[Rfam]
RNA sequence: UUCUAUCUCAGAGGAGUGACACUGAGAACACAAGAUUGAUUAAUCAUAUAAUGUAUUUGGUUGUUACUAGUUGAUUUUGUGUUCUCAGGUCACCCCUUUGAGUCAACC
Number, nucleotide and partner (000 for none) at each position: 001u000002u000003c000004u000005a000006u000007c102008u101009c000010a000011g098012a097013g096014g095015a000016g093017u092018g091019a090020c000021a000022c000023u000024g086025a085026g084027a083028a082029c081030a080031c079032a078033a077034g000035a000036u000037u000038g000039a000040u000041u000042a000043a000044u000045c000046a000047u000048a000049u000050a000051a000052u000053g000054u000055a000056u000057u000058u000059g000060g000061u000062u000063g000064u000065u000066a000067c000068u000069a000070g000071u000072u000073g000074a000075u000076u000077u033078u032079g031080u030081g029082u028083u027084c026085u025086c024087a000088g000089g000090u019091c018092a017093c016094c000095c014096c013097u012098u011099u000100g000101a008102g007103u000104c000105a000106a000107c000108c000
The record is a 108-nucleotide RNA sequence, which matches "MIR398 microRNA precursor family" in Rfam. For this family Rfam cites "Computational identification of plant microRNAs and their targets, including a stress-induced miRNA" (Jones-Rhoades and Bartel, Mol Cell, 2004). The base pairs follow the family's consensus structure, which was predicted with WAR.